[Rfam]
Small nucleolar RNA SNORD2: a 67-nucleotide RNA sequence from Carassius auratus. It scores 47 bits against the family's covariance model. The source organism's lineage runs through Eukaryota, Gnathostomata, Clupeocephala, Cypriniformes and Carassius. Gene Ontology terms of the family: RNA processing and nucleolus. By type it is a C/D-box small nucleolar RNA.

RNA sequence: GUGUGAGAUGGUAUACUGUCUUUCGGGACUGACUUGUUACGGAUAUGAACUUUUCAACUGAUCAUAC
Numbered sequence: 001g002u003g004u005g006a007g008a009u010g011g012u013a014u015a016c017u018g019u020c021u022u023u024c025g026g027g028a029c030u031g032a033c034u035u036g037u038u039a040c041g042g043a044u045a046u047g048a049a050c051u052u053u054u055c056a057a058c059u060g061a062u063c064a065u066a067c
Base pairs, nucleotide, nucleotide: 001067002066003065004064005063006062